[Rfam]
A member of the RNA family "HIF-1 alpha IRES" from Felis catus, 281 nucleotides long. Rfam classes the family as an internal ribosome entry site. The literature on the family includes a 2002 paper in Mol Biol Cell by Lang et al., "Hypoxia-inducible factor-1alpha mRNA contains an internal ribosome entry site that allows efficient translation during normoxia and hypoxia". Rfam's curators write: This family represents the hypoxia-inducible factor 1-alpha internal ribosome entry site. HIF-1a is a subunit of the HIF-1 transcription factor, which induces transcription of several genes involved in the cellular response to hypoxia. Taxonomically the source falls in Felis (Eukaryota, Boreoeutheria, Feliformia, Felidae). The family's consensus secondary structure was predicted with RNAfold.
RNA sequence: CUCGUCUGAGGGGACGCGAGGAUCGGCCUCGCCGCCGCUUCGUCCGGUGCUCGGGGCCCUGACAAGCUGCCUGAGGGGAGGCUCUUCUGAGCCGGACCUGGACCCUUACGAUUGCCGCCUGCUGCUCCUGCCUCCGGGUUUACAAGGGUUCCCGCCUUGCACCUCCCACCUCUGGACGUGCCUCCCCUUCUCUCCUCGCGUGUGGAGGGAGCCAGCGCUUAGGCCGGAGCGAGCCUGGGGGCGGCCGGCCGUGAAGGCUUCGCGGGGACCGAUUCGCCAUG
Numbered sequence: 001c002u003c004g005u006c007u008g009a010g011g012g013g014a015c016g017c018g019a020g021g022a023u024c025g026g027c028c029u030c031g032c033c034g035c036c037g038c039u040u041c042g043u044c045c046g047g048u049g050c051u052c053g054g055g056g057c058c059c060u061g062a063c064a065a066g067c068u069g070c071c072u073g074a075g076g077g078g079a080g081g082c083u084c085u086u087c088u089g090a091g092c093c094g095g096a097c098c099u100g101g102a103c104c105c106u107u108a109c110g111a112u113u114g115c116c117g118c119c120u121g122c123u124g125c126u127c128c129u130g131c132c133u134c135c136g137g138g139u140u141u142a143c144a145a146g147g148g149u150u151c152c153c154g155c156c157u158u159g160c161a162c163c164u165c166c167c168a169c170c171u172c173u174g175g176a177c178g179u180g181c182c183u184c185c186c187c188u189u190c191u192c193u194c195c196u197c198g199c200g201u202g203u204g205g206a207g208g209g210a211g212c213c214a215g216c217g218c219u220u221a222g223g224c225c226g227g228a229g230c231g232a233g234c235c236u237g238g239g240g241g242c243g244g245c246c247g248g249c250c251g252u253g254a255a256g257g258c259u260u261c262g263c264g265g266g267g268a269c270c271g272a273u274u275c276g277c278c279a280u281g
Stems, first nucleotide, its partner, number of pairs: 001013003016032006034057003080150003084147001125146002129142001179214002182211004191206003225248001227246001229245002